[Rfam]
RNA sequence: GCCCGACCACGCAACUGGCGUUCAAGGUCCGCAUCGGGCCGAGGUGGGCAACCACCGGGGAGCGUGGUCGCCGCAGGCGCAUCGGCUUGCGGCGGUUUCUUGCCGUGCGCCUGGGCAGCCCGA
Numbered sequence: 001g002c003c004c005g006a007c008c009a010c011g012c013a014a015c016u017g018g019c020g021u022u023c024a025a026g027g028u029c030c031g032c033a034u035c036g037g038g039c040c041g042a043g044g045u046g047g048g049c050a051a052c053c054a055c056c057g058g059g060g061a062g063c064g065u066g067g068u069c070g071c072c073g074c075a076g077g078c079g080c081a082u083c084g085g086c087u088u089g090c091g092g093c094g095g096u097u098u099c100u101u102g103c104c105g106u107g108c109g110c111c112u113g114g115g116c117a118g119c120c121c122g123a
Base pairs, nucleotide, nucleotide: 004070005069006068007067008066009065010064011063012062015059016058017111018110019109020108021107044055045054046053047052100118101117102116103115104114
Source information:
This 123-nucleotide RNA sequence from Sphaerotilus sulfidivorans belongs to the Rfam family "ZMP/ZTP riboswitch aptamer (pfl RNA motif)". Rfam 15.1 lists 3,295 matches to the family in 2,545 species. The source organism's lineage runs through Bacteria, Pseudomonadati, Burkholderiales, Sphaerotilaceae and Sphaerotilus. The family's consensus secondary structure is taken from published work. It scores 53 bits against the family's covariance model.